[Rfam]
RNA sequence: UGCGAGAGUGAUGAGCUGCACUUCAGUGGAGCUGCCAUGUCCGGUGACAUGGACCCCACUCAGAAUCUCCCUGAUGACAAAGCUAUGUGCACAGGGGCCAUCUGACUCGCU
Numbered sequence: 001u002g003c004g005a006g007a008g009u010g011a012u013g014a015g016c017u018g019c020a021c022u023u024c025a026g027u028g029g030a031g032c033u034g035c036c037a038u039g040u041c042c043g044g045u046g047a048c049a050u051g052g053a054c055c056c057c058a059c060u061c062a063g064a065a066u067c068u069c070c071c072u073g074a075u076g077a078c079a080a081a082g083c084u085a086u087g088u089g090c091a092c093a094g095g096g097g098c099c100a101u102c103u104g105a106c107u108c109g110c111u
Stems, first nucleotide, its partner, number of pairs: 004110001006108003022064002026059004031054001033052001037050005
Record summary
The family of this 111-nucleotide RNA sequence from Alligator sinensis is "Small nucleolar RNA SNORD67". For this family Rfam cites "RNomics: an experimental approach that identifies 201 candidates for novel, small, non-messenger RNAs in mouse" (Huttenhofer et al., EMBO J, 2001). A search with the family's covariance model found it, with a score of 101 bits. Gene Ontology terms of the family: nucleolus and RNA processing. The family's RNA type in Rfam is C/D-box small nucleolar RNA. The family has 15 seed sequences and 781 matches in Rfam 15.1. snoRNA HBII-166 belongs to the C/D family of snoRNAs. Lineage of the source: Eukaryota > Teleostomi > Amniota > Alligatorinae > Alligator.